The record is a 98-nucleotide RNA sequence from Hymenobacter sp. NBH84, which matches "TPP riboswitch aptamer (THI element)" in Rfam. Gene Ontology term of the family: thiamine pyrophosphate binding. The source organism's lineage runs through Bacteria, Pseudomonadati, Cytophagia, Hymenobacteraceae and Hymenobacter. About the family: Vitamin B(1) in its active form thiamin pyrophosphate (TPP) is an essential coenzyme that is synthesised by coupling of pyrimidine and thiazole moieties in bacteria.
RNA sequence: CCUAAACUUUAGGGGUGUUCUGCUACGAGCGGGACUGAGAAAUACCCUUGGAACCUGAUCCAGGUAAUGCUGGCGAAGGGAAAAGUGCAAGAAGCGGA
Numbered sequence: 001c002c003u004a005a006a007c008u009u010u011a012g013g014g015g016u017g018u019u020c021u022g023c024u025a026c027g028a029g030c031g032g033g034a035c036u037g038a039g040a041a042a043u044a045c046c047c048u049u050g051g052a053a054c055c056u057g058a059u060c061c062a063g064g065u066a067a068u069g070c071u072g073g074c075g076a077a078g079g080g081a082a083a084a085g086u087g088c089a090a091g092a093a094g095c096g097g098a
Stems, first nucleotide, its partner, number of pairs: 006086005011048004016042001017035007054079003060073004